[Rfam]
A member of the RNA family "U12 minor spliceosomal RNA" from Cloeon dipterum, 157 nucleotides long. The base pairs follow the family's consensus structure. The literature on the family includes a 1997 paper in Trends Biochem Sci by Tarn and Steitz, "Pre-mRNA splicing: the discovery of a new spliceosome doubles the challenge".

RNA sequence: GUGCCUUAAACUAAUGAGUAAGGAAAAUAUCAAAGCCUUGGUGACGCUUGGCUUUAUCCAAAGCUUUUACAAGCAAUAGGAAUUUUUGAAAGGGCAAAGGUCGUCCCUGAGUGGCUAGCCUACUUUUGCUGGCUGCGACGGUGAAGCGAUCUACCCU
Numbered sequence: 001g002u003g004c005c006u007u008a009a010a011c012u013a014a015u016g017a018g019u020a021a022g023g024a025a026a027a028u029a030u031c032a033a034a035g036c037c038u039u040g041g042u043g044a045c046g047c048u049u050g051g052c053u054u055u056a057u058c059c060a061a062a063g064c065u066u067u068u069a070c071a072a073g074c075a076a077u078a079g080g081a082a083u084u085u086u087u088g089a090a091a092g093g094g095c096a097a098a099g100g101u102c103g104u105c106c107c108u109g110a111g112u113g114g115c116u117a118g119c120c121u122a123c124u125u126u127u128g129c130u131g132g133c134u135g136c137g138a139c140g141g142u143g144a145a146g147c148g149a150u151c152u153a154c155c156c157u
Stems, first nucleotide, its partner, number of pairs: 004023005033054005040047001057075001059073001091157004098152007106141002111136003115132005
Background: Rfam classes the family as a spliceosomal small nuclear RNA. NCBI's taxonomy places the organism under Eukaryota, Opisthokonta, Eumetazoa, Altocrustacea, Cloeon.